RNA sequence: GGGCGGAUAUUGGAUGAAUCCUACCCGGUGAGGUAUCGUUAUCUCCACACCGGACGAGAUUGCAUCCGACAGCGG
Number, nucleotide and partner (000 for none) at each position: 001g000002g000003g073004c072005g000006g070007a000008u000009a000010u069011u068012g067013g066014a065015u064016g063017a061018a060019u059020c058021c000022u056023a000024c000025c053026c052027g051028g050029u049030g000031a000032g046033g045034u000035a000036u000037c000038g000039u000040u000041a000042u000043c000044u000045c033046c032047a000048c000049a029050c028051c027052g026053g025054a000055c000056g022057a000058g020059a019060u018061u017062g000063c016064a015065u014066c013067c012068g011069a010070c006071a000072g004073c003074g000075g000

A member of the RNA family "mir-3478 microRNA precursor family", 75 nucleotides long. Rfam 15.1 lists 14 matches to the family in 14 species.